[Rfam]
This 101-nucleotide sequence from Otolemur garnettii belongs to the Rfam family "Y RNA". Lineage of the source: Eukaryota > Chordata > Sarcopterygii > Theria > Otolemur. It scores 39 bits against the family's covariance model.
RNA sequence: GGCAGGGCCGAGUACAGUGGUGUUCACAACCCGCGAUCACAACCAGUGACAGAUUGCUUUAUCCUUUCUCCACUCCCACAGCUUCACUUGAUUAGCCCUAA
Numbered sequence: 001g002g003c004a005g006g007g008c009c010g011a012g013u014a015c016a017g018u019g020g021u022g023u024u025c026a027c028a029a030c031c032c033g034c035g036a037u038c039a040c041a042a043c044c045a046g047u048g049a050c051a052g053a054u055u056g057c058u059u060u061a062u063c064c065u066u067u068c069u070c071c072a073c074u075c076c077c078a079c080a081g082c083u084u085c086a087c088u089u090g091a092u093u094a095g096c097c098c099u100a101a
Stems, first nucleotide, its partner, number of pairs: 001097003005093002008090001010089002017079004022075001035063003039059001